[Rfam]
Shown here is a 116-nucleotide RNA from Streptomyces griseoaurantiacus, a member of the family "Streptomyces-metK RNA". The sequence is in the family's curated seed alignment. The source organism's lineage runs through Bacteria, Actinomycetota, Actinomycetes, Streptomyces and Streptomyces griseoaurantiacus. It is annotated as a small RNA.

RNA sequence: GCGAGACGGGUGGGCCCGUGGCCGGGCAUGACCGAUAAACUGUCCCCGGACGUCGCCGGGCGCAGCCCCCGCCCGUCCACCAAUGAUCAGCCAGCAGCCGCUGCAACCCCAGGGAG
Numbered sequence: 001g002c003g004a005g006a007c008g009g010g011u012g013g014g015c016c017c018g019u020g021g022c023c024g025g026g027c028a029u030g031a032c033c034g035a036u037a038a039a040c041u042g043u044c045c046c047c048g049g050a051c052g053u054c055g056c057c058g059g060g061c062g063c064a065g066c067c068c069c070c071g072c073c074c075g076u077c078c079a080c081c082a083a084u085g086a087u088c089a090g091c092c093a094g095c096a097g098c099c100g101c102u103g104c105a106a107c108c109c110c111a112g113g114g115a116g
Base pairs, nucleotide, nucleotide: 048078049077050076051075052074057071058070059069060068092103093102094101095100